[Rfam]
RNA sequence: ACAUGCAGCGCGGGAGAGAUCGUCAAGGCAGCCGAUGACGACGCCGACGGAGCAACCGCCCCGGAAACUCUCAGGCCCAAGGACCGCGCCGCAGGA
Numbered sequence: 001a002c003a004u005g006c007a008g009c010g011c012g013g014g015a016g017a018g019a020u021c022g023u024c025a026a027g028g029c030a031g032c033c034g035a036u037g038a039c040g041a042c043g044c045c046g047a048c049g050g051a052g053c054a055a056c057c058g059c060c061c062c063g064g065a066a067a068c069u070c071u072c073a074g075g076c077c078c079a080a081g082g083a084c085c086g087c088g089c090c091g092c093a094g095g096a
Stems, first nucleotide, its partner, number of pairs: 006091001008089006020041006043076003046072002050070003056064002

About this RNA
This 96-nucleotide RNA from Caballeronia telluris belongs to the Rfam family "Glycine riboswitch aptamer". A search with the family's covariance model found it, with a score of 64 bits. Rfam describes the family as follows. This family represents the bacterial glycine riboswitch. Glycine riboswitches usually consist of two metabolite-binding aptamers domains with similar structures in tandem. The aptamers cooperatively bind glycine to regulate the expression of downstream genes. In Bacillus subtilis, this riboswitch is found upstream of the gcvT operon which controls glycine degradation.